A member of the RNA family "BsrG" from Rummeliibacillus stabekisii, 294 nucleotides long. The family's consensus secondary structure was predicted with WAR. It scores 87 bits against the family's covariance model. Rfam's curators write: bsrE, bsrG and bsrH pair through intermolecular interactions with antisense sRNAs. Rfam 15.1 lists 614 matches to the family in 343 species. The source organism's lineage runs through Bacteria, Bacillota, Caryophanales, Caryophanaceae and Rummeliibacillus.
[Rfam]
RNA sequence: GAUAGAUAGUUCGGUACUCAAGGGUGGUUGGCUUUCUCCUAAAUAGAUCAGACUAAUUUGUCCAUAACGUGUGGCAUCGUCUGUACAAGGAGGUGAUGCCAUGACGGUAUAUGAAUCAUUAACGUUUGCGAUUGCAUUCGCUACCUUAAUCAUUACAAUUCUGUCAUUCAACCAUAAAAAAUAACCCAUCCUUGAGUUAACGGCUCUGAUGGGUUGUCAUAUCCUAAAUGAGCUAAUCCCCCUAUCGGGAAUCAACUAUCAUCUAUUUAACCGUCCGAUGCUACAACAUCGGCG
Numbered sequence: 001g002a003u004a005g006a007u008a009g010u011u012c013g014g015u016a017c018u019c020a021a022g023g024g025u026g027g028u029u030g031g032c033u034u035u036c037u038c039c040u041a042a043a044u045a046g047a048u049c050a051g052a053c054u055a056a057u058u059u060g061u062c063c064a065u066a067a068c069g070u071g072u073g074g075c076a077u078c079g080u081c082u083g084u085a086c087a088a089g090g091a092g093g094u095g096a097u098g099c100c101a102u103g104a105c106g107g108u109a110u111a112u113g114a115a116u117c118a119u120u121a122a123c124g125u126u127u128g129c130g131a132u133u134g135c136a137u138u139c140g141c142u143a144c145c146u147u148a149a150u151c152a153u154u155a156c157a158a159u160u161c162u163g164u165c166a167u168u169c170a171a172c173c174a175u176a177a178a179a180a181a182u183a184a185c186c187c188a189u190c191c192u193u194g195a196g197u198u199a200a201c202g203g204c205u206c207u208g209a210u211g212g213g214u215u216g217u218c219a220u221a222u223c224c225u226a227a228a229u230g231a232g233c234u235a236a237u238c239c240c241c242c243u244a245u246c247g248g249g250a251a252u253c254a255a256c257u258a259u260c261a262u263c264u265a266u267u268u269a270a271c272c273g274u275c276c277g278a279u280g281c282u283a284c285a286a287c288a289u290c291g292g293c294g
Stems, first nucleotide, its partner, number of pairs: 001267005007258003011254001015236001017196008026186004033096002036092005103165005109159001116131002142155002208224001237250004272294002275292006